The family of this 118-nucleotide RNA sequence from Coptis chinensis is "Small nucleolar RNA snoR111". NCBI's taxonomy places the organism under Eukaryota, Streptophyta, Tracheophyta, Mesangiospermae, Coptis. On this family, see Marker et al., Curr Biol 2002: "Experimental RNomics: identification of 140 candidates for small non-messenger RNAs in the plant Arabidopsis thaliana".

[Rfam]
RNA sequence: GAGAAAUGAGAGACUUGUGUCUCUUCAUUGAAAGGAAACUGAGGUAGAGUAAUAUGGUGACAUAUCGUUUCAGUUGCCCUUUAUUUUGAUUGGAGAUUUGAUUGUUGCUCUUCUACAU
Numbered sequence: 001g002a003g004a005a006a007u008g009a010g011a012g013a014c015u016u017g018u019g020u021c022u023c024u025u026c027a028u029u030g031a032a033a034g035g036a037a038a039c040u041g042a043g044g045u046a047g048a049g050u051a052a053u054a055u056g057g058u059g060a061c062a063u064a065u066c067g068u069u070u071c072a073g074u075u076g077c078c079c080u081u082u083a084u085u086u087u088g089a090u091u092g093g094a095g096a097u098u099u100g101a102u103u104g105u106u107g108c109u110c111u112u113c114u115a116c117a118u
Base pairs, nucleotide, nucleotide: 005029006028007027008026010023011022012021013020014019056114057113059110060109064102065101066100067099073097074096075095077093078092081089082088
Dot-bracket structure: ....((((.(((((....)))))..))))..........................((.((...((((.....(((.((..((.....))..)).))).))))......))..))....